[Rfam]
Rfam assigns this 65-nucleotide RNA sequence from Poseidonvirus SCBP4 to the family "Glutamine-II riboswitch aptamer". A reference for the family is Huang et al. (2019), "Structure and ligand binding of the glutamine-II riboswitch", Nucleic Acids Res.

RNA sequence: GUCCGUUCAUCAUCGCAGCGUAGCUGCUUUGACGCAUGACGCCUACUCAUGGAACGGGGGUAGGU
Number, nucleotide and partner (000 for none) at each position: 001g000002u000003c000004c056005g055006u054007u053008c052009a000010u032011c031012a030013u000014c000015g000016c000017a000018g000019c000020g000021u000022a000023g000024c000025u000026g000027c000028u000029u000030u012031g011032a010033c000034g000035c000036a000037u000038g000039a000040c000041g065042c064043c063044u062045a061046c060047u059048c058049a000050u000051g000052g008053a007054a006055c005056g004057g000058g048059g047060g046061u045062a044063g043064g042065u041
The source organism's lineage runs through Viruses, Heunggongvirae, Autographivirales, Poseidonvirus and Poseidonvirus SCBP4.